[Rfam]
Rfam assigns this 381-nucleotide sequence from Roseobacter cerasinus to the family "Bacterial RNase P class A". Lineage of the source: Bacteria > Pseudomonadati > Rhodobacterales > Roseobacteraceae > Roseobacter. From the family's description: Ribonuclease P (RNase P) is a ubiquitous endoribonuclease, found in archaea, bacteria and eukarya as well as chloroplasts and mitochondria. By type it is a ribozyme.
RNA sequence: GCGGAAGGCCGGAUGGCCGCGGCGCCGGGCAACCGGGGUCGAGGAAAGUCCGGACUCCCAAAAGCAACGGUGCCGGGUAACGCCCGGGCAGGGCAACCUGACGGACAGCGCCACAGAAAACAGACCGCCGCAGCACUGCGGCAAGGGUGAAACGGUGGGGUAAGAGCCCACCGCGCCGCUGGCAACAGGGGCGGCACGGCAAGCCCCACCGGGAGCAAUGCCAAAUAGGGAUCGCGCGUCGCAAGACGGGGCCGCUUUUGCCCCAGCAGAUCCGGGUUGGCAGCUAGAGCCCUUGCGGUAACGCAGGGGCAAGAGGAAUGGUCAUCGAACCGGGGUUUGCGCCCUGGGGAACAGAAUCCGGCUUACAGGCCUUCCGCGCAU
Numbered sequence: 001g002c003g004g005a006a007g008g009c010c011g012g013a014u015g016g017c018c019g020c021g022g023c024g025c026c027g028g029g030c031a032a033c034c035g036g037g038g039u040c041g042a043g044g045a046a047a048g049u050c051c052g053g054a055c056u057c058c059c060a061a062a063a064g065c066a067a068c069g070g071u072g073c074c075g076g077g078u079a080a081c082g083c084c085c086g087g088g089c090a091g092g093g094c095a096a097c098c099u100g101a102c103g104g105a106c107a108g109c110g111c112c113a114c115a116g117a118a119a120a121c122a123g124a125c126c127g128c129c130g131c132a133g134c135a136c137u138g139c140g141g142c143a144a145g146g147g148u149g150a151a152a153c154g155g156u157g158g159g160g161u162a163a164g165a166g167c168c169c170a171c172c173g174c175g176c177c178g179c180u181g182g183c184a185a186c187a188g189g190g191g192c193g194g195c196a197c198g199g200c201a202a203g204c205c206c207c208a209c210c211g212g213g214a215g216c217a218a219u220g221c222c223a224a225a226u227a228g229g230g231a232u233c234g235c236g237c238g239u240c241g242c243a244a245g246a247c248g249g250g251g252c253c254g255c256u257u258u259u260g261c262c263c264c265a266g267c268a269g270a271u272c273c274g275g276g277u278u279g280g281c282a283g284c285u286a287g288a289g290c291c292c293u294u295g296c297g298g299u300a301a302c303g304c305a306g307g308g309g310c311a312a313g314a315g316g317a318a319u320g321g322u323c324a325u326c327g328a329a330c331c332g333g334g335g336u337u338u339g340c341g342c343c344c345u346g347g348g349g350a351a352c353a354g355a356a357u358c359c360g361g362c363u364u365a366c367a368g369g370c371c372u373u374c375c376g377c378g379c380a381u
Stems, first nucleotide, its partner, number of pairs: 001377010011366001012326007020041004025036004046364003050361005055215004063257002068211005073087005088102001089100004103206002108204002110200003125146002127142006154172006173195001174193004179188003219282004229273005248264005290309008